[Rfam]
RNA sequence: AGCUUUGCACAGUGGCAGUACUGUAGCCAAUGAGGUUUAUCCAAGGCAUGAUUAUUGCAAUUGAAAACUUUUCCCAAUACCCCGCCAUGAUGACUCUGGAAAUGUAGUCGGCAUUGGCAAUUUUUGGCAGUCUCUAUGGGGA
Numbered sequence: 001a002g003c004u005u006u007g008c009a010c011a012g013u014g015g016c017a018g019u020a021c022u023g024u025a026g027c028c029a030a031u032g033a034g035g036u037u038u039a040u041c042c043a044a045g046g047c048a049u050g051a052u053u054a055u056u057g058c059a060a061u062u063g064a065a066a067a068c069u070u071u072u073c074c075c076a077a078u079a080c081c082c083c084g085c086c087a088u089g090a091u092g093a094c095u096c097u098g099g100a101a102a103u104g105u106a107g108u109c110g111g112c113a114u115u116g117g118c119a120a121u122u123u124u125u126g127g128c129a130g131u132c133u134c135u136a137u138g139g140g141g142a
Stems, first nucleotide, its partner, number of pairs: 020052001022050003026047003034042002084118003087114003091110005131142004
Rfam assigns this 142-nucleotide RNA from Aotus nancymaae to the family "U4 spliceosomal RNA". The match comes from Rfam's covariance-model search (99 bits). The base pairs follow the family's consensus structure, which is taken from published work. From the family's description: U4 small nuclear RNA (U4 snRNA) is a component of the major U2-dependent spliceosome. Taxonomically the source falls in Aotus (Eukaryota, Opisthokonta, Metazoa, Eutheria).